[Rfam]
RNA sequence: AGGUGAGGUAGAGGCGCGAAAACCAUGAGUAUCCUGCUGGAGGAACGAGAAUCCAGUGAAGGCAGGGGAAAGGGGAAUUCGCCGAAAUGGCAGGUUGGAUCUCGCCGCCUGCUGUUGGGCCUGCAUUGAAUAAGUGCAGGACUGUCACCGGAUGAUCAUCCCGGAUGUUCGGUGGAGCACUAUCUCGCAG
Numbered sequence: 001a002g003g004u005g006a007g008g009u010a011g012a013g014g015c016g017c018g019a020a021a022a023c024c025a026u027g028a029g030u031a032u033c034c035u036g037c038u039g040g041a042g043g044a045a046c047g048a049g050a051a052u053c054c055a056g057u058g059a060a061g062g063c064a065g066g067g068g069a070a071a072g073g074g075g076a077a078u079u080c081g082c083c084g085a086a087a088u089g090g091c092a093g094g095u096u097g098g099a100u101c102u103c104g105c106c107g108c109c110u111g112c113u114g115u116u117g118g119g120c121c122u123g124c125a126u127u128g129a130a131u132a133a134g135u136g137c138a139g140g141a142c143u144g145u146c147a148c149c150g151g152a153u154g155a156u157c158a159u160c161c162c163g164g165a166u167g168u169u170c171g172g173u174g175g176a177g178c179a180c181u182a183u184c185u186c187g188c189a190g
Stems, first nucleotide, its partner, number of pairs: 006185006016082005023075002032067007086116010097105001117143002120140008145175010

Overview:
Shown here is a 190-nucleotide RNA from Aneurinibacillus sp. XH2, a member of the family "Lysine riboswitch aptamer". Riboswitches are metabolite binding domains within certain messenger RNAs that serve as precision sensors for their corresponding targets.